Small nucleolar RNA SNORD16: a 99-nucleotide sequence from Ceyx cyanopectus.
[Rfam]
RNA sequence: UGCUGUGAUGAUGUAAUUUGCGUCUUACCCAGCGGCAGCGGCAGUUGCCUGCUGCCACAGGCUGGCCCUGGCAGGCUGCAGACCCCUUCCUUCUGAGCA
Numbered sequence: 001u002g003c004u005g006u007g008a009u010g011a012u013g014u015a016a017u018u019u020g021c022g023u024c025u026u027a028c029c030c031a032g033c034g035g036c037a038g039c040g041g042c043a044g045u046u047g048c049c050u051g052c053u054g055c056c057a058c059a060g061g062c063u064g065g066c067c068c069u070g071g072c073a074g075g076c077u078g079c080a081g082a083c084c085c086c087u088u089c090c091u092u093c094u095g096a097g098c099a
Stems, first nucleotide, its partner, number of pairs: 001099003021081001024078001030070003034066001038062002040056005
Dot-bracket structure: (((.................(..(.....(((.(...(((((((.......)))))....))...).))).......)..)...............)))
The family is grouped with related families in Rfam's "SNORD16 clan". It scores 60 bits against the family's covariance model.